[Rfam]
RNA sequence: GUGCCCAGUGAUUAUAAAAAAGACGCGUUAUUCUGAGGGACUCCACCUGCUACUCAUUCUAUCUCUUUCUUUACCCUCUCCCCUCAAUUUUCUUUCUUUCUCUGUUAAGGUAGCAGGUCCGUUGACUGUGAUUAUGAGAUAUGAGGGCAU
Numbered sequence: 001g002u003g004c005c006c007a008g009u010g011a012u013u014a015u016a017a018a019a020a021a022g023a024c025g026c027g028u029u030a031u032u033c034u035g036a037g038g039g040a041c042u043c044c045a046c047c048u049g050c051u052a053c054u055c056a057u058u059c060u061a062u063c064u065c066u067u068u069c070u071u072u073a074c075c076c077u078c079u080c081c082c083c084u085c086a087a088u089u090u091u092c093u094u095u096c097u098u099u100c101u102c103u104g105u106u107a108a109g110g111u112a113g114c115a116g117g118u119c120c121g122u123u124g125a126c127u128g129u130g131a132u133u134a135u136g137a138g139a140u141a142u143g144a145g146g147g148c149a150u
Stems, first nucleotide, its partner, number of pairs: 001150006036066004
Background: This 150-nucleotide RNA from Denticeps clupeoides belongs to the Rfam family "Small nucleolar RNA SNORD97". By type it is a C/D-box small nucleolar RNA. The base pairs follow the family's consensus structure, which was predicted with WAR. Gene Ontology terms of the family: RNA processing and nucleolus. Taxonomically the source falls in Denticeps (Eukaryota, Vertebrata, Neopterygii, Osteoglossocephalai).